[Rfam]
RNA sequence: UACCGAGGAAAACCUCGACAGUUAACUGCAGCCGGUUUCUUCAAAAUUCGACAGUUAACUGUCGAGGGGUAU
Numbered sequence: 001u002a003c004c005g006a007g008g009a010a011a012a013c014c015u016c017g018a019c020a021g022u023u024a025a026c027u028g029c030a031g032c033c034g035g036u037u038u039c040u041u042c043a044a045a046a047u048u049c050g051a052c053a054g055u056u057a058a059c060u061g062u063c064g065a066g067g068g069g070u071a072u
Stems, first nucleotide, its partner, number of pairs: 013067001015065014

Description: The record is a 72-nucleotide RNA from Medicago truncatula, which matches "MIR2629 microRNA precursor family" in Rfam. Pairs were carried over by alignment from the consensus structure, which was predicted with RNAalifold. The source organism's lineage runs through Eukaryota, Spermatophyta, Mesangiospermae, eudicotyledons and Medicago.